Rfam assigns this 111-nucleotide sequence from Actinoallomurus bryophytorum to the family "Glycine riboswitch aptamer". A search with the family's covariance model found it, with a score of 45 bits.
[Rfam]
RNA sequence: GCACCUCUGGAAAGCGGGACGCGGUGGUCAUCCGGCCGCCCGUCCUCACCGAAGGUGCAAGCCGCGGACCUCGCGGCGAAGCUCUCAGGUUCAGGUGACAGAGGGGGAGAC
Numbered sequence: 001g002c003a004c005c006u007c008u009g010g011a012a013a014g015c016g017g018g019a020c021g022c023g024g025u026g027g028u029c030a031u032c033c034g035g036c037c038g039c040c041c042g043u044c045c046u047c048a049c050c051g052a053a054g055g056u057g058c059a060a061g062c063c064g065c066g067g068a069c070c071u072c073g074c075g076g077c078g079a080a081g082c083u084c085u086c087a088g089g090u091u092c093a094g095g096u097g098a099c100a101g102a103g104g105g106g107g108a109g110a111c
Stems, first nucleotide, its partner, number of pairs: 002106001004104006016046006048090003051086002055084001057082001061077007